[Rfam]
RNA: c-di-AMP riboswitch aptamer (ydaO/yuaA leader)
RNA sequence: AGCACACACUCACCCGUGCACGGCAGGAGCGGGGGACCCACAGGUACAACGCCUGUUCCGGUCUCCGGAACGGCUAGGGGUAAAGCCGCGUUUCGGCGCGGCCGGACAUCUCCAGUCCGCACCCGACAGCUCACCUCGCAGGCGCCGGAGAGGAAUUCG
Numbered sequence: 001a002g003c004a005c006a007c008a009c010u011c012a013c014c015c016g017u018g019c020a021c022g023g024c025a026g027g028a029g030c031g032g033g034g035g036a037c038c039c040a041c042a043g044g045u046a047c048a049a050c051g052c053c054u055g056u057u058c059c060g061g062u063c064u065c066c067g068g069a070a071c072g073g074c075u076a077g078g079g080g081u082a083a084a085g086c087c088g089c090g091u092u093u094c095g096g097c098g099c100g101g102c103c104g105g106a107c108a109u110c111u112c113c114a115g116u117c118c119g120c121a122c123c124c125g126a127c128a129g130c131u132c133a134c135c136u137c138g139c140a141g142g143c144g145c146c147g148g149a150g151a152g153g154a155a156u157u158c159g
Base pairs, nucleotide, nucleotide: 007144009142010141015027029139030138031137032136033135034134039077078124079123080122086101087100088099089098104118105117106116107115